[Rfam]
RNA sequence: UGGACUUAGCUGGGCAGUGGGGGAACCUUUCCAUGAGGAAUAGGACACUCCUUAUGCAAGAUUCCCUUUUGCCUGGCUGGGGUGG
Numbered sequence: 001u002g003g004a005c006u007u008a009g010c011u012g013g014g015c016a017g018u019g020g021g022g023g024a025a026c027c028u029u030u031c032c033a034u035g036a037g038g039a040a041u042a043g044g045a046c047a048c049u050c051c052u053u054a055u056g057c058a059a060g061a062u063u064c065c066c067u068u069u070u071g072c073c074u075g076g077c078u079g080g081g082g083u084g085g
Base pairs, nucleotide, nucleotide: 003083005081006080007079008078009077011075012074013073014072016070017069019067020066021065023064024063025062028060029059030058032056033055034054035053036052037051038050039049041047

The family of this 85-nucleotide sequence from Fukomys damarensis is "mir-491 microRNA precursor family". Its family is annotated with miRNA-mediated post-transcriptional gene silencing and RISC complex in the Gene Ontology. A reference for the family is Bentwich et al. (2005), "Identification of hundreds of conserved and nonconserved human microRNAs", Nat Genet.